mir-8834 microRNA precursor family: a 106-nucleotide RNA sequence from Canis lupus. The family has 2 seed sequences and 13,926 matches in Rfam 15.1. Taxonomically the source falls in Canis lupus (Eukaryota, Bilateria, Laurasiatheria, Canis). The family's consensus secondary structure was predicted with RNAalifold. The match comes from Rfam's covariance-model search (58 bits).
RNA sequence: AGGAGGAACAACCCCAGUGAUAGCGGCCAGCUCUGGAAACCUGGAUUCAGCCCCUGCAGUAACUCCUGAGCAGACAGUCUGCAGGGUCUGGAGGCUCUGGGGCUGG
Number, nucleotide and partner (000 for none) at each position: 001a000002g098003g097004a096005g095006g000007a000008a000009c090010a089011a000012c086013c085014c084015c000016a000017g000018u000019g079020a078021u077022a000023g075024c000025g000026g000027c000028c000029a000030g071031c070032u069033c068034u000035g066036g065037a064038a000039a000040c000041c059042u058043g057044g000045a000046u000047u000048c000049a000050g000051c000052c000053c000054c000055u000056g000057c043058a042059g041060u000061a000062a000063c000064u037065c036066c035067u000068g033069a032070g031071c030072a000073g000074a000075c023076a000077g021078u020079c019080u000081g000082c000083a000084g014085g013086g012087u000088c000089u010090g009091g000092a000093g000094g000095c005096u004097c003098u002099g000100g000101g000102g000103c000104u000105g000106g000